[Rfam]
The family of this 174-nucleotide sequence from Fusobacterium varium is "Lysine riboswitch aptamer".
RNA sequence: AAUUUUGAUAGAGGUGCAUGGAACAUCAGUAAAAAUACUUAGUCUGGCAGACUGCGAGGUAUUUUGAAAGGGAACUUUGCCGAAAUGGAGAUAUCGCCUGAUAUCUUUGUUGGCAGUAUGAAGAAUAUUUAUACUGCUGUCAUUGGUUUUUAUCAAUGGAGUGCUGUCUGGAAA
Numbered sequence: 001a002a003u004u005u006u007g008a009u010a011g012a013g014g015u016g017c018a019u020g021g022a023a024c025a026u027c028a029g030u031a032a033a034a035a036u037a038c039u040u041a042g043u044c045u046g047g048c049a050g051a052c053u054g055c056g057a058g059g060u061a062u063u064u065u066g067a068a069a070g071g072g073a074a075c076u077u078u079g080c081c082g083a084a085a086u087g088g089a090g091a092u093a094u095c096g097c098c099u100g101a102u103a104u105c106u107u108u109g110u111u112g113g114c115a116g117u118a119u120g121a122a123g124a125a126u127a128u129u130u131a132u133a134c135u136g137c138u139g140u141c142a143u144u145g146g147u148u149u150u151u152a153u154c155a156a157u158g159g160a161g162u163g164c165u166g167u168c169u170g171g172a173a174a
Stems, first nucleotide, its partner, number of pairs: 007168005016080003020076002024072001032065008084111012112138011140159007
About the family: Riboswitches are metabolite binding domains within certain messenger RNAs that serve as precision sensors for their corresponding targets.
The base pairs follow the family's consensus structure, which is taken from published work.